[Rfam]
RNA sequence: UGGAUAGGAUAUAACCGCUUUGCUGCUUUGUGAUGAUACAGGGCAGCAGUGAGGUAAAGUCCGGGCUCCUUCGGAAAAAAUGCCGGGUAAUAACCGGGCGAAAACAGGCAGCUGCAGAUUUCUGCAAAGCCCCGUUUUUCGACAGAGAGUGCAACAGAAAUUAUACCGCCCGCUGCAAAGCGAGUAAGGGUGAAAAGGUGGUGUAAGAGACUACCGGUCAGGCUGGUAACGGCCGGCGCUUGUAAACCUCAUUUGGAGCAAGGUUAAGCAGCAGUAAGGUUUUUCCGAGCUUUUUACUGCGGGUAAACCGCUGGAGCAGACUGGUAACAGUUUUGCGUGGAUAGAUGGUUAUGCGUGAAGUUUGAUUUUUCAGGCUUUACAGAACAGAACCCGGCUUAUUGUCCUAUCUUUUUU
Dot-bracket structure: .(((((((((((((((.(.((((((((((((......)))))))))))).).....[[[.[[[[[((((...[[[[.(((((((((.......))))(((((((...............................)))))).)((...(((((............((((.((((....)))).))..)).......((((((.......)))))).(.(.(((((....))))).)..).)))..)))))))))))))...((((.....((((((((.((.]]]])).))...)))))).....))))......((((((((....))).)))))..........)))))......................................]]]]]]]].).))))))))).....
The record is a 414-nucleotide sequence from Treponema sp. JC4, which matches "Bacterial RNase P class A" in Rfam. Ribonuclease P (RNase P) is a ubiquitous endoribonuclease, found in archaea, bacteria and eukarya as well as chloroplasts and mitochondria.